The record is an 86-nucleotide RNA sequence from Desulfoscipio geothermicus, which matches "c-di-GMP-I riboswitch aptamer" in Rfam. Rfam 15.1 lists 5,092 matches to the family in 1,772 species.
[Rfam]
RNA sequence: CAAAAAACCGGGCAAACCGUUCGAAAGAUCGGGGCGCAAAGCUAUGGGCCUAAGGCUUUUUAAGCUAUGGCUGCCAGGCUGCUUAA
Numbered sequence: 001c002a003a004a005a006a007a008c009c010g011g012g013c014a015a016a017c018c019g020u021u022c023g024a025a026a027g028a029u030c031g032g033g034g035c036g037c038a039a040a041g042c043u044a045u046g047g048g049c050c051u052a053a054g055g056c057u058u059u060u061u062a063a064g065c066u067a068u069g070g071c072u073g074c075c076a077g078g079c080u081g082c083u084u085a086a
Stems, first nucleotide, its partner, number of pairs: 012037002017032003021028002040080004045076003048071003055065004